The record is an 85-nucleotide RNA from Rhizobacter sp. Root29, which matches "Glycine riboswitch aptamer" in Rfam. Its family is annotated with glycine biosynthetic process in the Gene Ontology. It scores 47 bits against the family's covariance model. This family represents the bacterial glycine riboswitch. NCBI's taxonomy places the organism under Bacteria, Pseudomonadati, Burkholderiales, Sphaerotilaceae, Rhizobacter.
Nucleotides: 085
Base pairs, nucleotide, nucleotide: 001085002084003083004082005081012026013025014024015023028073029072030071031069032068035067036066037065041061042060
Number, partner (000 for none) and nucleotide at each position: 001085g002084c003083c004082a005081g006000g007000a008000g009000a010000g011000a012026g013025c014024u015023u016000c017000c018000a019000c020000g021000c022000g023015a024014a025013g026012c027000c028073g029072c030071c031069g032068a033000a034000g035067g036066c037065g038000c039000a040000g041061g042060a043000c044000c045000g046000g047000c048000a049000g050000c051000g052000a053000u054000g055000c056000c057000g058000g059000c060042u061041c062000g063000a064000a065037c066036g067035c068032u069031c070000a071030g072029g073028c074000a075000a076000a077000a078000g079000g080000a081005c082004u083003g084002g085001c